[Rfam]
RNA sequence: GGGGUGAUGCCUGGUUUUCUCACUUAGUAUGAGAUGAAUUUUUGAAUGGGUACAGGUUUCCCCUUGGAGGCUCUGCCUACUUUGCGGAAUCUUCAGGUGAUGAGAUCUACCCA
Numbered sequence: 001g002g003g004g005u006g007a008u009g010c011c012u013g014g015u016u017u018u019c020u021c022a023c024u025u026a027g028u029a030u031g032a033g034a035u036g037a038a039u040u041u042u043u044g045a046a047u048g049g050g051u052a053c054a055g056g057u058u059u060c061c062c063c064u065u066g067g068a069g070g071c072u073c074u075g076c077c078u079a080c081u082u083u084g085c086g087g088a089a090u091c092u093u094c095a096g097g098u099g100a101u102g103a104g105a106u107c108u109a110c111c112c113a
Stems, first nucleotide, its partner, number of pairs: 001012003018034005047113005054108007063097002066094005072088005
Annotation:
Rfam assigns this 113-nucleotide RNA sequence from Aquarana catesbeiana to the family "U12 minor spliceosomal RNA". The family has 62 seed sequences and 2,106 matches in Rfam 15.1. The match comes from Rfam's covariance-model search (73 bits). By type it is a spliceosomal small nuclear RNA.